[Rfam]
RNA sequence: AGGCCAUGGUAGUGUUUUAGAAUUCCUACGCUUUACCGUUGCAUAUGAAACUUGGCAAAGCGUUUGGAUUCUGAAACGUUAUAUGG
Numbered sequence: 001a002g003g004c005c006a007u008g009g010u011a012g013u014g015u016u017u018u019a020g021a022a023u024u025c026c027u028a029c030g031c032u033u034u035a036c037c038g039u040u041g042c043a044u045a046u047g048a049a050a051c052u053u054g055g056c057a058a059a060g061c062g063u064u065u066g067g068a069u070u071c072u073g074a075a076a077c078g079u080u081a082u083a084u085g086g
Base pairs, nucleotide, nucleotide: 011079014077015076016075017074018073019072020071021070023068024067025066028063029062030061031060032059033058034057036055037054